[Rfam]
RNA: Metazoan signal recognition particle RNA
Organism: Ceratitis capitata
RNA sequence: ACUGGAAGGUUGGCAUCUUCUGUAAUCACGCUUCUGUGAGGUCGGAUUGUGGAAUGGCCUGAGGCCGGGAGUCCUGUGUGGUGGGCCAGUUCAUGUUGACGGAACGUCCGCACUAAGCUUGCCAUCAAUAUGGGUGCCAAGGAGGAGUUCUAGGCAUUCAGGUUGGCUAAGGAGGGAUGAACCGGGCCAGGGGUGAAAACCAGCAGCCAAGAGUUCCCGUGGUAGGCAGUAGUGGGAUAGCGUACCGGAGUGGAAUGCCACUACCAGCCCAGUCAAUAUGGUUAGACCGCAAUCUUU
Numbered sequence: 001a002c003u004g005g006a007a008g009g010u011u012g013g014c015a016u017c018u019u020c021u022g023u024a025a026u027c028a029c030g031c032u033u034c035u036g037u038g039a040g041g042u043c044g045g046a047u048u049g050u051g052g053a054a055u056g057g058c059c060u061g062a063g064g065c066c067g068g069g070a071g072u073c074c075u076g077u078g079u080g081g082u083g084g085g086c087c088a089g090u091u092c093a094u095g096u097u098g099a100c101g102g103a104a105c106g107u108c109c110g111c112a113c114u115a116a117g118c119u120u121g122c123c124a125u126c127a128a129u130a131u132g133g134g135u136g137c138c139a140a141g142g143a144g145g146a147g148u149u150c151u152a153g154g155c156a157u158u159c160a161g162g163u164u165g166g167c168u169a170a171g172g173a174g175g176g177a178u179g180a181a182c183c184g185g186g187c188c189a190g191g192g193g194u195g196a197a198a199a200c201c202a203g204c205a206g207c208c209a210a211g212a213g214u215u216c217c218c219g220u221g222g223u224a225g226g227c228a229g230u231a232g233u234g235g236g237a238u239a240g241c242g243u244a245c246c247g248g249a250g251u252g253g254a255a256u257g258c259c260a261c262u263a264c265c266a267g268c269c270c271a272g273u274c275a276a277u278a279u280g281g282u283u284a285g286a287c288c289g290c291a292a293u294c295u296u297u
Stems, first nucleotide, its partner, number of pairs: 001042003004021007026039003044295009055284005063274003067270003074267003078264005084259003090254005096248001100247003104243004108236002111234005117227009126165004131160008140151004167171001174217005185208003192201003
Dot-bracket structure: ((((((((((....)))))))....(((........)))))).(((((((((..(((((...(((.(((....(((.(((((.(((...(((((.(...(((.((((((.(((((.(((((((((((((.((((((((.((((....)))).)))))))).)))).(...)..(((((......(((....(((....)))....)))....))))).)))))))))..)))))))...)))).)))).)))))..)))))))))))))).))).....)))))..)))))))))..